A member of the RNA family "Iron response element II" from Coregonus sp. 'balchen', 31 nucleotides long. On this family, see Koeller et al., Proc Natl Acad Sci U S A 1989: "A cytosolic protein binds to structural elements within the iron regulatory region of the transferrin receptor mRNA". Lineage of the source: Eukaryota > Metazoa > Eumetazoa > Craniata > Coregonus. IRE, TFRC, SLC40A1, SDHB, SLC11A2, CDC42BPA, ACO2, ALAS2_H.SAPIENS, CDC14A, EPAS1, ALAS2, qoxD, Hao1, NDUFS1, transferrin, Aconitate. Its family is annotated with response to iron ion in the Gene Ontology. It is annotated as a cis-regulatory element.
[Rfam]
RNA sequence: UCAUUUUCAGAGGCAGAGCCCCCUAAAAUGG
Numbered sequence: 001u002c003a004u005u006u007u008c009a010g011a012g013g014c015a016g017a018g019c020c021c022c023c024u025a026a027a028a029u030g031g
Stems, first nucleotide, its partner, number of pairs: 001031007009024002012021002014018001